Rfam assigns this 58-nucleotide RNA sequence from Colobus angolensis to the family "Ma3 gene ribosomal frameshift signal".
Gene Ontology term of the family: translational frameshifting.
The family has 12 seed sequences and 565 matches in Rfam 15.1.
For this family Rfam cites "A functional -1 ribosomal frameshift signal in the human paraneoplastic Ma3 gene" (Wills et al., J Biol Chem, 2006).

[Rfam]
RNA sequence: GGGAAAUGUGUGUGGGGUUGUGGGUGAGCCAACACAACCCUUUACAAAAUUAGGCUCA
Numbered sequence: 001g002g003g004a005a006a007u008g009u010g011u012g013u014g015g016g017g018u019u020g021u022g023g024g025u026g027a028g029c030c031a032a033c034a035c036a037a038c039c040c041u042u043u044a045c046a047a048a049a050u051u052a053g054g055c056u057c058a
Stems, first nucleotide, its partner, number of pairs: 014042001015040008026057005